[Rfam]
RNA: Leucine operon leader
Organism: [Enterobacter] lignolyticus
RNA sequence: CUGGAGCAUGACGCAAUGACUCGCAUCACUCGUUUCACCGGCCUACUACUACUAAACGCAUCCUCUGUGCGCGGUAGUCUGGUGGGCGACGUUUAGCGAUAAGUCAUCUUCCAGCAAGACAGAAAACCCGCGCCUCUGCGCGGGUUUUUUU
Numbered sequence: 001c002u003g004g005a006g007c008a009u010g011a012c013g014c015a016a017u018g019a020c021u022c023g024c025a026u027c028a029c030u031c032g033u034u035u036c037a038c039c040g041g042c043c044u045a046c047u048a049c050u051a052c053u054a055a056a057c058g059c060a061u062c063c064u065c066u067g068u069g070c071g072c073g074g075u076a077g078u079c080u081g082g083u084g085g086g087c088g089a090c091g092u093u094u095a096g097c098g099a100u101a102a103g104u105c106a107u108c109u110u111c112c113a114g115c116a117a118g119a120c121a122g123a124a125a126a127c128c129c130g131c132g133c134c135u136c137u138g139c140g141c142g143g144g145u146u147u148u149u150u151u
Stems, first nucleotide, its partner, number of pairs: 004111001006108001008107004015100001017098002026089002029086006049077005057071004123148011